[Rfam]
Shown here is a 103-nucleotide RNA from Aneurinibacillus soli, a member of the family "SAM riboswitch aptamer (S box leader)". Rfam's curators write: The SAM riboswitch is found upstream of a number of genes which code for proteins involved in methionine or cysteine biosynthesis in Gram-positive bacteria.
RNA sequence: CUCUUAUCGAGAGAGGCGGAGGGACUGGCCCUAUGAAGCCCGGCAACCGGCACGACGUGCAAGGUGCUAAAUCCAGCAAAGCAGCGGCUUUGGAAGAUGAGAG
Numbered sequence: 001c002u003c004u005u006a007u008c009g010a011g012a013g014a015g016g017c018g019g020a021g022g023g024a025c026u027g028g029c030c031c032u033a034u035g036a037a038g039c040c041c042g043g044c045a046a047c048c049g050g051c052a053c054g055a056c057g058u059g060c061a062a063g064g065u066g067c068u069a070a071a072u073c074c075a076g077c078a079a080a081g082c083a084g085c086g087g088c089u090u091u092g093g094a095a096g097a098u099g100a101g102a103g
Stems, first nucleotide, its partner, number of pairs: 001103008013041001015040003021031003025076004042068004047064002050060004072095001077092006